[Rfam]
RNA sequence: UGAGUGUAGCCCAGCGUGUGCCGUACUGAUAGUGUAAUAGCUAGCUAUCAUAAGACACACGCGGCUAUAUUCG
Numbered sequence: 001u002g003a004g005u006g007u008a009g010c011c012c013a014g015c016g017u018g019u020g021c022c023g024u025a026c027u028g029a030u031a032g033u034g035u036a037a038u039a040g041c042u043a044g045c046u047a048u049c050a051u052a053a054g055a056c057a058c059a060c061g062c063g064g065c066u067a068u069a070u071u072c073g
Stems, first nucleotide, its partner, number of pairs: 001073006008066004014062003019057002022054001027050005